[Rfam]
RNA sequence: UAACCGCGGAGGAAACGCCGCGCUGAAUCUGCAGGAGUCAGCAGAAGCCAUAGUACGCAGGCGGUUGCAACGGCUUGCGGAAGGGC
Numbered sequence: 001u002a003a004c005c006g007c008g009g010a011g012g013a014a015a016c017g018c019c020g021c022g023c024u025g026a027a028u029c030u031g032c033a034g035g036a037g038u039c040a041g042c043a044g045a046a047g048c049c050a051u052a053g054u055a056c057g058c059a060g061g062c063g064g065u066u067g068c069a070a071c072g073g074c075u076u077g078c079g080g081a082a083g084g085g086c
Base pairs, nucleotide, nucleotide: 001025002024005022006021007020008019009018011016038045039044047086048085049084056079057078058077059076060075061074
RNA: Group II catalytic intron D1-D4-1